The family of this 67-nucleotide sequence from Cytobacillus dafuensis is "Bacillaceae-1 RNA".
The match comes from Rfam's covariance-model search (77 bits).
The organism belongs to Cytobacillus, within Bacteria.
It is annotated as a small RNA.
RNA sequence: GUAAAAUGAACACAGACUAAAAGCGCCACAUCGUGUGGCAACGUCUGUGUGACCCACUUCCUGUGGG
Numbered sequence: 001g002u003a004a005a006a007u008g009a010a011c012a013c014a015g016a017c018u019a020a021a022a023g024c025g026c027c028a029c030a031u032c033g034u035g036u037g038g039c040a041a042c043g044u045c046u047g048u049g050u051g052a053c054c055c056a057c058u059u060c061c062u063g064u065g066g067g
Stems, first nucleotide, its partner, number of pairs: 011049007025039005053067005